[Rfam]
RNA sequence: CGGUGCUCGAAGGAGCUCUCGACACUUCAACGCUGAAAAGUGGUGUGGCUCGAUUGCUACGCCUGCUAGUUCAUGGAUACCCCUGCCCUGCGCACGCAGGCCAAGGGUUAGCAUGAGCUAGGAGACGUGGCUUGCCUCCAUUUUUUUGGUAUUGGGGUGAAGGGAGCUCUCUUGGGUUCUAAA
Numbered sequence: 001c002g003g004u005g006c007u008c009g010a011a012g013g014a015g016c017u018c019u020c021g022a023c024a025c026u027u028c029a030a031c032g033c034u035g036a037a038a039a040g041u042g043g044u045g046u047g048g049c050u051c052g053a054u055u056g057c058u059a060c061g062c063c064u065g066c067u068a069g070u071u072c073a074u075g076g077a078u079a080c081c082c083c084u085g086c087c088c089u090g091c092g093c094a095c096g097c098a099g100g101c102c103a104a105g106g107g108u109u110a111g112c113a114u115g116a117g118c119u120a121g122g123a124g125a126c127g128u129g130g131c132u133u134g135c136c137u138c139c140a141u142u143u144u145u146u147u148g149g150u151a152u153u154g155g156g157g158u159g160a161a162g163g164g165a166g167c168u169c170u171c172u173u174g175g176g177u178u179c180u181a182a183a
Base pairs, nucleotide, nucleotide: 013169014168015167016166017165018164019163020162023159024158025157026156027155028154029153036146063124064123066121067120068119072115073114074113075112080107
A member of the RNA family "MIR159 microRNA precursor family" from Hibiscus syriacus, 183 nucleotides long. The match comes from Rfam's covariance-model search (82 bits). The base pairs follow the family's consensus structure, which was predicted with WAR.